[Rfam]
RNA sequence: GCGUGACGCCGGGCCCCUCUGGCGGUGGUUGGUCCCACCGUGAUGUCGGAGUCAUAAG
Dot-bracket structure: .....((.((((.........(((((((......)))))))....)))).))......
Numbered sequence: 001g002c003g004u005g006a007c008g009c010c011g012g013g014c015c016c017c018u019c020u021g022g023c024g025g026u027g028g029u030u031g032g033u034c035c036c037a038c039c040g041u042g043a044u045g046u047c048g049g050a051g052u053c054a055u056a057a058g
Stems, first nucleotide, its partner, number of pairs: 006052002009049004022041007